[Rfam]
F6 TB sRNA: a 57-nucleotide RNA from Nakamurella antarctica.
RNA sequence: CGAAUGACCCCGGAUUGUUGCCUAACCCCCGACUUGGCAGCCAACCGGGGUCAUUCC
Number, nucleotide and partner (000 for none) at each position: 001c000002g056003a055004a054005u053006g000007a051008c050009c049010c048011c047012g046013g045014a000015u043016u000017g041018u040019u039020g038021c037022c036023u000024a000025a000026c000027c000028c000029c000030c000031g000032a000033c000034u000035u000036g022037g021038c020039a019040g018041c017042c000043a015044a000045c013046c012047g011048g010049g009050g008051u007052c000053a005054u004055u003056c002057c000

The literature on the family includes a 2009 paper in Mol Microbiol by Arnvig and Young, "Identification of small RNAs in Mycobacterium tuberculosis". Rfam 15.1 lists 310 matches to the family in 304 species. The source organism's lineage runs through Bacteria, Actinomycetota, Nakamurellales, Nakamurellaceae and Nakamurella.